Shown here is an 85-nucleotide sequence from Paenibacillus sp. IHBB 10380, a member of the family "c-di-GMP-I riboswitch aptamer".
NCBI's taxonomy places the organism under Bacteria, Bacillati, Bacillota, Caryophanales, Paenibacillus.
The match comes from Rfam's covariance-model search (64 bits).
The family is grouped with related families in Rfam's "c-di-GMP_I riboswitch clan".
RNA sequence: AGAAAAAUGUGGAAAAUCUAUAGAAAUAUAGGGACACAAAACUACAGGGACUAAGGUUAUAUAACUAUGUCAGCCUGUUGCCAAA
Numbered sequence: 001a002g003a004a005a006a007a008u009g010u011g012g013a014a015a016a017u018c019u020a021u022a023g024a025a026a027u028a029u030a031g032g033g034a035c036a037c038a039a040a041a042c043u044a045c046a047g048g049g050a051c052u053a054a055g056g057u058u059a060u061a062u063a064a065c066u067a068u069g070u071c072a073g074c075c076u077g078u079u080g081c082c083a084a085a
Stems, first nucleotide, its partner, number of pairs: 012037001017032006040079003047075002049071003056065003